[Rfam]
RNA: c-di-AMP riboswitch aptamer (ydaO/yuaA leader)
Organism: Paenibacillaceae bacterium
RNA sequence: UUUCCAGUUUCGCUUAAUCUCCUCACAAGGAGAGCGGGGGAACCAAUGGCGGUAUUUUGUAGCGGAAACGCACAAGCUGCUGCUUCGGAUUCUCAGGGGUGAAUUUGAAACUGCCAGACCAUGAGUCGGCAGCAGCAAUAGGGCGACUCUCUUGCCCGAACCCGUCAGCUAACCUCGCAAGCGUAUCAUAGAGAGGUC
Numbered sequence: 001u002u003u004c005c006a007g008u009u010u011c012g013c014u015u016a017a018u019c020u021c022c023u024c025a026c027a028a029g030g031a032g033a034g035c036g037g038g039g040g041a042a043c044c045a046a047u048g049g050c051g052g053u054a055u056u057u058u059g060u061a062g063c064g065g066a067a068a069c070g071c072a073c074a075a076g077c078u079g080c081u082g083c084u085u086c087g088g089a090u091u092c093u094c095a096g097g098g099g100u101g102a103a104u105u106u107g108a109a110a111c112u113g114c115c116a117g118a119c120c121a122u123g124a125g126u127c128g129g130c131a132g133c134a135g136c137a138a139u140a141g142g143g144c145g146a147c148u149c150u151c152u153u154g155c156c157c158g159a160a161c162c163c164g165u166c167a168g169c170u171a172a173c174c175u176c177g178c179a180a181g182c183g184u185a186u187c188a189u190a191g192a193g194a195g196g197u198c
Stems, first nucleotide, its partner, number of pairs: 011183004018033005034178006044096001097163003105138003141157004